[Rfam]
RNA sequence: ACGACCUUACUUGAACAGGAUCUGUUCUAUAGGGACGUACAUCUGUUUCCUAGAGUUCUAAGGAGACAGGAAUCCAAGUCUGGUUGAUGAACUACGGCCUCUGUGACCAGAGCGUGAGUAACGGCAUAGUGUCCUUCUCGGGCUGCUGGUGCGGUAGAGGAUCGUUUCCAGCCAUCCCGUCUUGGCUGGCUGGUAUGGUCACACGGCUGUCUGACAGACU
Numbered sequence: 001a002c003g004a005c006c007u008u009a010c011u012u013g014a015a016c017a018g019g020a021u022c023u024g025u026u027c028u029a030u031a032g033g034g035a036c037g038u039a040c041a042u043c044u045g046u047u048u049c050c051u052a053g054a055g056u057u058c059u060a061a062g063g064a065g066a067c068a069g070g071a072a073u074c075c076a077a078g079u080c081u082g083g084u085u086g087a088u089g090a091a092c093u094a095c096g097g098c099c100u101c102u103g104u105g106a107c108c109a110g111a112g113c114g115u116g117a118g119u120a121a122c123g124g125c126a127u128a129g130u131g132u133c134c135u136u137c138u139c140g141g142g143c144u145g146c147u148g149g150u151g152c153g154g155u156a157g158a159g160g161a162u163c164g165u166u167u168c169c170a171g172c173c174a175u176c177c178c179g180u181c182u183u184g185g186c187u188g189g190c191u192g193g194u195a196u197g198g199u200c201a202c203a204c205g206g207c208u209g210u211c212u213g214a215c216a217g218a219c220u
Stems, first nucleotide, its partner, number of pairs: 001038002005033003013027006043069004048064004053059001078219005097207003102203008111166004121155002124152004128147004133142003168193007176185002
This 220-nucleotide RNA from Carya illinoinensis belongs to the Rfam family "Plant small nucleolar RNA U3". It scores 168 bits against the family's covariance model. By type it is a C/D-box small nucleolar RNA. From the family's description: Small nucleolar RNAs (snoRNAs) are involved in the processing and modification of rRNA in the nucleolus. There are two main classes of snoRNAs: the box C/D class, and the box H/ACA class. U3 snoRNA is a member of the box C/D class. Indeed, the box C/D element is a subset of the six short sequence elements found in all U3 snoRNAs, namely boxes A, A', B, C, C', and D. The U3 snoRNA secondary structure is characterised by a small 5' domain (with boxes A and A'), and a larger 3' domain (with boxes B, C, C', and D), the two domains being linked by a single-stranded hinge. The family's consensus secondary structure is taken from published work. A reference for the family is Zwieb (1997), "The uRNA database", Nucleic Acids Res.